RNA sequence: UAGAAAAAUCGGUAGGUGAGGCUACCAUAGGGAUAAGGGUUGCUGCCGCGAAAUAGUGGAGACACUAUGAGUUGGUUAACAGUCUAUGUCGAAUUCAAGGCAUAGAAUAAUGCAAUUUCAUCGCCCUAUGAAGCUAAAGCUCAAACGGUUAUUAAA
Numbered sequence: 001u002a003g004a005a006a007a008a009u010c011g012g013u014a015g016g017u018g019a020g021g022c023u024a025c026c027a028u029a030g031g032g033a034u035a036a037g038g039g040u041u042g043c044u045g046c047c048g049c050g051a052a053a054u055a056g057u058g059g060a061g062a063c064a065c066u067a068u069g070a071g072u073u074g075g076u077u078a079a080c081a082g083u084c085u086a087u088g089u090c091g092a093a094u095u096c097a098a099g100g101c102a103u104a105g106a107a108u109a110a111u112g113c114a115a116u117u118u119c120a121u122c123g124c125c126c127u128a129u130g131a132a133g134c135u136a137a138a139g140c141u142c143a144a145a146c147g148g149u150u151a152u153u154a155a156a
Stems, first nucleotide, its partner, number of pairs: 005153002008150001010148001011146001013098001015141003020135003026130007039116005046074001048072002055066004083106003088101003

Background:
A member of the RNA family "M-box riboswitch aptamer (ykoK leader)" from Cetobacterium somerae, 156 nucleotides long. From the family's description: M-box riboswitch, also know as ykoK leader is described as a metaloregulatory RNA that sense divalent metals and function as a genetic control element of genes related to divalent metal transport in bacteria. It was first reported upstream of the B.subtilis ykoK gene and genes with related functions in other bacteria. It scores 110 bits against the family's covariance model.